Rfam assigns this 119-nucleotide RNA from Myroides guanonis to the family "Group II catalytic intron D1-D4-2".
From the family's description: Group II introns are found in rRNA, tRNA and mRNA of organelles in fungi, plants and protists, and also in mRNA in bacteria.
A search with the family's covariance model found it, with a score of 84 bits.
On this family, see Bonen and Vogel, Trends Genet 2001: "The ins and outs of group II introns".
NCBI's taxonomy places the organism under Bacteria, Bacteroidota, Flavobacteriia, Flavobacteriaceae, Myroides.
[Rfam]
RNA sequence: GGUGGUAGGUCCACCGAAAUCGCUGUGCAAGCGGGGGUUUCAAACCGCCUCUCGGUGCUAAAGGAGUAAUUCUGCGGUAUUGAACGGAAAGAGGAAAAGGUUGGCAAGACCAAUCAGGU
Numbered sequence: 001g002g003u004g005g006u007a008g009g010u011c012c013a014c015c016g017a018a019a020u021c022g023c024u025g026u027g028c029a030a031g032c033g034g035g036g037g038u039u040u041c042a043a044a045c046c047g048c049c050u051c052u053c054g055g056u057g058c059u060a061a062a063g064g065a066g067u068a069a070u071u072c073u074g075c076g077g078u079a080u081u082g083a084a085c086g087g088a089a090a091g092a093g094g095a096a097a098a099g100g101u102u103g104g105c106a107a108g109a110c111c112a113a114u115c116a117g118g119u
Stems, first nucleotide, its partner, number of pairs: 001015005016041006023034004046118001048094005053087001054081002057078003062073003099115006